A member of the RNA family "Bacterial small signal recognition particle RNA" from a Parvibaculaceae bacterium, 97 nucleotides long.
The family's consensus secondary structure is taken from published work.
RNA sequence: GGAGGUUGGCGGUGGACGAGUUUCUCGCCAACCCGGUCAGGUCCGGAAGGAAGCAGCCGUAACGAGCCCUACUCGGGUCUCUGUUCCAGCCUCCCAC
Numbered sequence: 001g002g003a004g005g006u007u008g009g010c011g012g013u014g015g016a017c018g019a020g021u022u023u024c025u026c027g028c029c030a031a032c033c034c035g036g037u038c039a040g041g042u043c044c045g046g047a048a049g050g051a052a053g054c055a056g057c058c059g060u061a062a063c064g065a066g067c068c069c070u071a072c073u074c075g076g077g078u079c080u081c082u083g084u085u086c087c088a089g090c091c092u093c094c095c096a097c
Stems, first nucleotide, its partner, number of pairs: 004091005009084004014079001017075005024066004034059004042051003